[Rfam]
RNA: Lysine riboswitch aptamer
Organism: Faecalibaculum rodentium
RNA sequence: ACCGCAGAUAGAGGUCGCGGAAGCGACUCCUGCGAGUCCAGCCGGCAGGCGCAUGAGACCGCAGGGAGCGCUGCCGCCGAACUGCGUCUUCAGGCAUGAAGAGGCGGUGGGCCGCCGGGAGAAUAUUCCGCGGACUGUCUGCAGAUAUUGCAGGAGCGCUAUCCGAAGG
Numbered sequence: 001a002c003c004g005c006a007g008a009u010a011g012a013g014g015u016c017g018c019g020g021a022a023g024c025g026a027c028u029c030c031u032g033c034g035a036g037u038c039c040a041g042c043c044g045g046c047a048g049g050c051g052c053a054u055g056a057g058a059c060c061g062c063a064g065g066g067a068g069c070g071c072u073g074c075c076g077c078c079g080a081a082c083u084g085c086g087u088c089u090u091c092a093g094g095c096a097u098g099a100a101g102a103g104g105c106g107g108u109g110g111g112c113c114g115c116c117g118g119g120a121g122a123a124u125a126u127u128c129c130g131c132g133g134a135c136u137g138u139c140u141g142c143a144g145a146u147a148u149u150g151c152a153g154g155a156g157c158g159c160u161a162u163c164c165g166a167a168g169g
Stems, first nucleotide, its partner, number of pairs: 007163005017077004022072004028066007081108005087102006109136002112133004117129004138154007